[Rfam]
RNA sequence: GUUGCUUCCUAAUGGUGAACUCCCUCAAAAGUAAUUAAAGAUGAGGGAUGUUUCAAGUUUCCGAAGCAUAGAUCGAACAGUUUCCUACAAAUCAGUGUUAAACAGCGCCGGCGCUCCUAAUUUGCGUCGCGCCGGCGCUACCUGUCUGCUGAUACAUCA
Numbered sequence: 001g002u003u004g005c006u007u008c009c010u011a012a013u014g015g016u017g018a019a020c021u022c023c024c025u026c027a028a029a030a031g032u033a034a035u036u037a038a039a040g041a042u043g044a045g046g047g048a049u050g051u052u053u054c055a056a057g058u059u060u061c062c063g064a065a066g067c068a069u070a071g072a073u074c075g076a077a078c079a080g081u082u083u084c085c086u087a088c089a090a091a092u093c094a095g096u097g098u099u100a101a102a103c104a105g106c107g108c109c110g111g112c113g114c115u116c117c118u119a120a121u122u123u124g125c126g127u128c129g130c131g132c133c134g135g136c137g138c139u140a141c142c143u144g145u146c147u148g149c150u151g152a153u154a155c156a157u158c159a
Base pairs, nucleotide, nucleotide: 003068004067005066006065007064008063016055017054018053019051020050021048022047023046024045025044091153092152093151094150095149096148097147104139105138106137108135109134110133111132112131